[Rfam]
RNA sequence: AAUUCUGUCGGGAAAGAAGUACUCCCGCGGCUGUGCCGAAACUGCUUUAUAAGCUGAUGACUUCUGCCAUUAU
Number, nucleotide and partner (000 for none) at each position: 001a000002a000003u000004u000005c000006u000007g000008u000009c000010g026011g025012g024013a023014a000015a000016g064017a063018a062019g061020u060021a000022c000023u013024c012025c011026c010027g000028c000029g000030g000031c000032u000033g000034u000035g000036c000037c000038g000039a000040a000041a000042c000043u000044g054045c053046u052047u000048u000049a000050u000051a000052a046053g045054c044055u000056g000057a000058u000059g000060a020061c019062u018063u017064c016065u000066g000067c000068c000069a000070u000071u000072a000073u000
RNA: Fluoride riboswitch aptamer (crcB RNA motif)
Organism: Acetanaerobacterium elongatum